Overview
The family of this 93-nucleotide RNA is "PhotoRC-II RNA". Rfam's curators put it in the seed alignment. The family's consensus secondary structure is taken from published work.
RNA sequence: UGACUACAAACUGCUCUCAAACCAAGACCUAUAGGCAGUAUAAUACUUCGUCUUUUAUCCAGUAGUGAGGGAUUACUGGAAAUAAAUAUCGCU
Numbered sequence: 001u002g003a004c005u006a007c008a009a010a011c012u013g014c015u016c017u018c019a020a021a022c023c024a025a026g027a028c029c030u031a032u033a034g035g036c037a038g039u040a041u042a043a044u045a046c047u048u049c050g051u052c053u054u055u056u057a058u059c060c061a062g063u064a065g066u067g068a069g070g071g072a073u074u075a076c077u078g079g080a081a082a083u084a085a086a087u088a089u090c091g092c093u
Stems, first nucleotide, its partner, number of pairs: 011038005017033001024054005059079007
The family's RNA type in Rfam is cis-regulatory element.